[Rfam]
RNA sequence: GUUUGAAUGAUGACUUGAAUUGUCGGAUACCCCUUCACUCCCUCUGAGUGAACAAUCACAGUCUGACAAAC
Numbered sequence: 001g002u003u004u005g006a007a008u009g010a011u012g013a014c015u016u017g018a019a020u021u022g023u024c025g026g027a028u029a030c031c032c033c034u035u036c037a038c039u040c041c042c043u044c045u046g047a048g049u050g051a052a053c054a055a056u057c058a059c060a061g062u063c064u065g066a067c068a069a070a071c
Base pairs, nucleotide, nucleotide: 001071002070003069004068005067
This 71-nucleotide RNA from Tupaia belangeri belongs to the Rfam family "Small nucleolar RNA SNORD101".
Rfam links the family to the GO terms RNA processing and nucleolus.
For this family Rfam cites "Identification of 13 novel human modification guide RNAs" (Vitali et al., Nucleic Acids Res, 2003).
The family is grouped with related families in Rfam's "SNORD101 clan".